Rfam assigns this 373-nucleotide RNA sequence from Hymenobacter sedentarius to the family "transfer-messenger RNA". Rfam's curators write: Bacterial tmRNA, also known as 10Sa RNA or SsrA, is named for its dual tRNA and mRNA-like properties. Its role is to liberate the mRNA from a stalled ribosome. To accomplish this part of the tmRNA is used as a reading frame that ends in a translation stop signal. The broken mRNA is replaced in the ribosome by the tmRNA and translation of the tmRNA leads to addition of a proteolysis tag to the incomplete protein enabling recognition by a protease. Recently a number of permuted tmRNA genes have been found encoded in two parts. tmRNAs have been identified in eubacteria and some chloroplasts but are absent from archaeal and eukaryote nuclear genomes. Its Rfam clan is "tRNA clan". A search with the family's covariance model found it, with a score of 115 bits.
[Rfam]
RNA sequence: GGGGAUGACCGGAAUUGACAGCUUGCGCAAAUUGCGGGUAAGCGUGCCAGGAGUUGAUGGAAGCUCUCCUGUCAAAAAAUCUAUCAAACAACAACUGGCGACUAUUCGUACGCCAUGGCUGCCUAGUUCAGAAUUAGGUAAUUGCCAUCGUUCCGCCCGGGUAAGUUUCUACACCUGGGAGUUCGGAGCGUCGUAAGUAGAAAAUAGCCUUCGAGGAACUGUGACUCGGGGGCGAAACCCAACUGCAGCUAGGGGCGGUGCAAAGGCCUGAUGUGCGCCUGUACCGCCAUGAAAAUCCAAGCAUAGAUACGCACGUAGAAAGCACGUCGAUUUCCUUGUCUGGACCAGGGUUCGAAUCCCUGCAUCUCCACUU
Numbered sequence: 001g002g003g004g005a006u007g008a009c010c011g012g013a014a015u016u017g018a019c020a021g022c023u024u025g026c027g028c029a030a031a032u033u034g035c036g037g038g039u040a041a042g043c044g045u046g047c048c049a050g051g052a053g054u055u056g057a058u059g060g061a062a063g064c065u066c067u068c069c070u071g072u073c074a075a076a077a078a079a080u081c082u083a084u085c086a087a088a089c090a091a092c093a094a095c096u097g098g099c100g101a102c103u104a105u106u107c108g109u110a111c112g113c114c115a116u117g118g119c120u121g122c123c124u125a126g127u128u129c130a131g132a133a134u135u136a137g138g139u140a141a142u143u144g145c146c147a148u149c150g151u152u153c154c155g156c157c158c159g160g161g162u163a164a165g166u167u168u169c170u171a172c173a174c175c176u177g178g179g180a181g182u183u184c185g186g187a188g189c190g191u192c193g194u195a196a197g198u199a200g201a202a203a204a205u206a207g208c209c210u211u212c213g214a215g216g217a218a219c220u221g222u223g224a225c226u227c228g229g230g231g232g233c234g235a236a237a238c239c240c241a242a243c244u245g246c247a248g249c250u251a252g253g254g255g256c257g258g259u260g261c262a263a264a265g266g267c268c269u270g271a272u273g274u275g276c277g278c279c280u281g282u283a284c285c286g287c288c289a290u291g292a293a294a295a296u297c298c299a300a301g302c303a304u305a306g307a308u309a310c311g312c313a314c315g316u317a318g319a320a321a322g323c324a325c326g327u328c329g330a331u332u333u334c335c336u337u338g339u340c341u342g343g344a345c346c347a348g349g350g351u352u353c354g355a356a357u358c359c360c361u362g363c364a365u366c367u368c369c370a371c372u373u
Base pairs, nucleotide, nucleotide: 001369002368003367004366005365006364007363019342020341021340023338025336027334032329034327035326036325038323039322043315044314045313046312047311048071049070050069051068052067056085057084058083059082060081061080118142120140121139122138123137124136125135126134149190150189151188152187153186154185156179157178158177159176160175161174162173166201167200168199170197207233208232209231210230211229212228213227214226215225219248220247221246222245252290254288255287256286257285258284259283260282261281265279266278267277272306274303275302276301346362347361348360349359350358